[Rfam]
A member of the RNA family "c-di-GMP-I riboswitch aptamer" from Paenibacillus solanacearum, 89 nucleotides long. Rfam's curators write: GEMM was predicted in a large-scale screen for bacterial structured RNA regulatory elements. The family's consensus secondary structure is taken from published work.

Nucleotides: 089
Stems, first nucleotide, its partner, number of pairs: 012037002017032006040083004045079003048074003055068004
Number, partner (000 for none) and nucleotide at each position: 001000u002000a003000c004000u005000g006000a007000a008000a009000a010000a011000g012037g013036c014000a015000g016000a017032c018031u019030c020029u021028u022027c023000g024000a025000a026000a027022g028021a029020a030019g031018g032017g033000g034000a035000c036013g037012c038000a039000a040083a041082a042081c043080c044000a045079c046078a047077g048074g049073c050072c051000u052000a053000a054000g055068g056067a057066a058065u059000c060000a061000u062000a063000g064000g065058a066057u067056u068055u069000u070000a071000u072050g073049g074048c075000g076000g077047c078046u079045g080043g081042g082041u083040u084000u085000c086000c087000a088000a089000a